This 164-nucleotide RNA from Croceibacterium mercuriale belongs to the Rfam family "Manganese Mn2+ riboswitch aptamer (yybP-ykoY)".
RNA sequence: UUGGGGAGUAGCUACCCACUCCGGUGGGGCCAUCGUCAACACACUCGACCCUCCGGGAUCGUGGCGGUGGCAGCGAACGCAGGUUCGCCCAGCAAGACCAAUGACGCUGUACUCCGCUUUGAGGUCGGGGGUGCGUGCGUCGUUUGGUUAUCGGCCCCGAGAUU
Numbered sequence: 001u002u003g004g005g006g007a008g009u010a011g012c013u014a015c016c017c018a019c020u021c022c023g024g025u026g027g028g029g030c031c032a033u034c035g036u037c038a039a040c041a042c043a044c045u046c047g048a049c050c051c052u053c054c055g056g057g058a059u060c061g062u063g064g065c066g067g068u069g070g071c072a073g074c075g076a077a078c079g080c081a082g083g084u085u086c087g088c089c090c091a092g093c094a095a096g097a098c099c100a101a102u103g104a105c106g107c108u109g110u111a112c113u114c115c116g117c118u119u120u121g122a123g124g125u126c127g128g129g130g131g132u133g134c135g136u137g138c139g140u141c142g143u144u145u146g147g148u149u150a151u152c153g154g155c156c157c158c159g160a161g162a163u164u
Base pairs, nucleotide, nucleotide: 016027017026018025029071030070031069032068033067034066035065036064037063038062046061047060048059050057076164077163
The base pairs follow the family's consensus structure. Rfam's curators write: This RNA was originally discovered in E. coli during a large scale screen and was named SraF. The family was later found to exist upstream of related families of protein genes in many bacteria, including the the yybP and ykoK genes in B. subtilis.